6S / SsrS RNA: a 160-nucleotide RNA sequence from Pseudoselenomonas ruminis. Lineage of the source: Bacteria > Bacillati > Selenomonadales > Selenomonadaceae > Pseudoselenomonas.

RNA sequence: CUGGAAUGUACGCGGGCUUUUAUUAUGUCUAACCUACAUUUUUUAUAGGGAGCUUGAUUUGAUUCUGAUGAAUGUGCGCCUCGGCGGAGACUGAAGUCAGACUUAGAGCACCCACCUGCUAGUCGCAGGUUUUAGGCAUGAAAAGCGUACGGCAUUUUGG
Numbered sequence: 001c002u003g004g005a006a007u008g009u010a011c012g013c014g015g016g017c018u019u020u021u022a023u024u025a026u027g028u029c030u031a032a033c034c035u036a037c038a039u040u041u042u043u044u045a046u047a048g049g050g051a052g053c054u055u056g057a058u059u060u061g062a063u064u065c066u067g068a069u070g071a072a073u074g075u076g077c078g079c080c081u082c083g084g085c086g087g088a089g090a091c092u093g094a095a096g097u098c099a100g101a102c103u104u105a106g107a108g109c110a111c112c113c114a115c116c117u118g119c120u121a122g123u124c125g126c127a128g129g130u131u132u133u134a135g136g137c138a139u140g141a142a143a144a145g146c147g148u149a150c151g152g153c154a155u156u157u158u159g160g
Stems, first nucleotide, its partner, number of pairs: 001160009011151002027137004031132002033129002048113003052109004057104001062103001064101005074091002079087002